This 72-nucleotide sequence from Camelimonas lactis belongs to the Rfam family "Makes More Granules Regulator RNA (mmgR)".
[Rfam]
RNA sequence: GCUGCGUGCCCUCCUUGGGCGUUUCCUCCCUAGACUUGGCUGCGCUUCGGCGCAGCCUUUUUUCUUGGGACA
Numbered sequence: 001g002c003u004g005c006g007u008g009c010c011c012u013c014c015u016u017g018g019g020c021g022u023u024u025c026c027u028c029c030c031u032a033g034a035c036u037u038g039g040c041u042g043c044g045c046u047u048c049g050g051c052g053c054a055g056c057c058u059u060u061u062u063u064c065u066u067g068g069g070a071c072a
Stems, first nucleotide, its partner, number of pairs: 008020004038057008
The match comes from Rfam's covariance-model search (60 bits). By type it is a small RNA.